[Rfam]
RNA: Small nucleolar RNA SNORA79
Organism: Onychostoma macrolepis
RNA sequence: UGAUGAUUGUUCCUCCUGCUGCUCUGAGCUCAGGCAGCUCGGGAUUUUAUAUCAUCAUAGAGAAUCAGAGUCUACUUCACCCGGUGUGUGCCGACCCCACGGUCACAUGUGGCCACACUGGACAUUGCGGGACUCUACAGCU
Number, nucleotide and partner (000 for none) at each position: 001u057002g056003a055004u054005g053006a052007u051008u000009g000010u000011u000012c000013c000014u044015c043016c042017u041018g040019c000020u036021g035022c034023u033024c000025u000026g000027a000028g000029c000030u000031c000032a000033g023034g022035c021036a020037g000038c000039u000040c018041g017042g016043g015044a014045u000046u000047u000048u000049a000050u000051a007052u006053c005054a004055u003056c002057a001058u000059a000060g000061a000062g000063a000064a000065u000066c000067a000068g000069a134070g133071u132072c131073u130074a000075c000076u000077u000078c000079a000080c000081c121082c120083g119084g118085u117086g116087u115088g114089u000090g000091c000092c000093g000094a000095c000096c000097c000098c000099a000100c000101g000102g000103u000104c000105a000106c000107a000108u000109g000110u000111g000112g000113c000114c088115a087116c086117a085118c084119u083120g082121g081122a000123c000124a000125u000126u000127g000128c000129g000130g073131g072132a071133c070134u069135c000136u000137a000138c000139a000140g000141c000142u000